[Rfam]
RNA: ALIL pseudoknot
RNA sequence: GGCGUUUUUCGCCUCGGCGGAACUCGACCGCCGACUGCGGUGAUCGUGGACUACAUCGACGGCCACCGGCAGCAGUUCGGGGUCGAGCCGAUCUGUCGCGUCCUGCGCGUGCAGGGCGUGUCGAUCGCCCCG
Numbered sequence: 001g002g003c004g005u006u007u008u009u010c011g012c013c014u015c016g017g018c019g020g021a022a023c024u025c026g027a028c029c030g031c032c033g034a035c036u037g038c039g040g041u042g043a044u045c046g047u048g049g050a051c052u053a054c055a056u057c058g059a060c061g062g063c064c065a066c067c068g069g070c071a072g073c074a075g076u077u078c079g080g081g082g083u084c085g086a087g088c089c090g091a092u093c094u095g096u097c098g099c100g101u102c103c104u105g106c107g108c109g110u111g112c113a114g115g116g117c118g119u120g121u122c123g124a125u126c127g128c129c130c131c132g
Base pairs, nucleotide, nucleotide: 016032017031018030019029020028078132079131080130081129082128089127090126092124093123095121097120098119099118100117101116102115103114104113105112106111